[Rfam]
RNA sequence: UUCUUAUCCAGAGUGGUGGAGGGACUGGCCCGAUGAAACCCAGCAACCCCCUUUUUAAAAGGAAGGUGCUAAUUCCAGCAAUAUCCAUGUGAUGUUGAGAGAUAAGAG
Numbered sequence: 001u002u003c004u005u006a007u008c009c010a011g012a013g014u015g016g017u018g019g020a021g022g023g024a025c026u027g028g029c030c031c032g033a034u035g036a037a038a039c040c041c042a043g044c045a046a047c048c049c050c051c052u053u054u055u056u057a058a059a060a061g062g063a064a065g066g067u068g069c070u071a072a073u074u075c076c077a078g079c080a081a082u083a084u085c086c087a088u089g090u091g092a093u094g095u096u097g098a099g100a101g102a103u104a105a106g107a108g
Stems, first nucleotide, its partner, number of pairs: 001108008013041001015040003021031003025078004042070004047066002049062001051061002074100001079097006
Dot-bracket structure: ((((((((....(.(((...(((.[[[[)))......))))((((.(((.((.......)))..))))))...(]]]]((((((.......))))))..)))))))))
The record is a 108-nucleotide sequence from Orenia metallireducens, which matches "SAM riboswitch aptamer (S box leader)" in Rfam. Pairs were carried over by alignment from the consensus structure, which is taken from published work. Lineage of the source: Bacteria > Bacillati > Bacillota > Halobacteroidaceae > Orenia.